Shown here is a 151-nucleotide sequence from Striga hermonthica, a member of the family "Small nucleolar RNA snoR2/U65". The base pairs follow the family's consensus structure, which was predicted with WAR. It scores 120 bits against the family's covariance model. Clan: SNORA65 clan. Gene Ontology terms of the family: nucleolus and RNA processing.

RNA sequence: GGUUCAAUGCCACGUCGCCGGUAGCCUUCCGGUAAUGACCGGCGGUGUCCAUGAUUGGACCUAAAUCGAUUCGUGUUUCGCAUUUUGAUAGGAAUCUGUGGACUGAUUGUUAUUCCGUUCAUCCACGGAGCCGUUUUGUGCGAUUACAUUU
Numbered sequence: 001g002g003u004u005c006a007a008u009g010c011c012a013c014g015u016c017g018c019c020g021g022u023a024g025c026c027u028u029c030c031g032g033u034a035a036u037g038a039c040c041g042g043c044g045g046u047g048u049c050c051a052u053g054a055u056u057g058g059a060c061c062u063a064a065a066u067c068g069a070u071u072c073g074u075g076u077u078u079c080g081c082a083u084u085u086u087g088a089u090a091g092g093a094a095u096c097u098g099u100g101g102a103c104u105g106a107u108u109g110u111u112a113u114u115c116c117g118u119u120c121a122u123c124c125a126c127g128g129a130g131c132c133g134u135u136u137u138g139u140g141c142g143a144u145u146a147c148a149u150u151u
Base pairs, nucleotide, nucleotide: 002060003059004058005057006056007055008054009052013047014046015045016044017043018042020040021039022038024033025032026031078143079142080141081140082139091132092131096128097127098126100124101123102122104121105120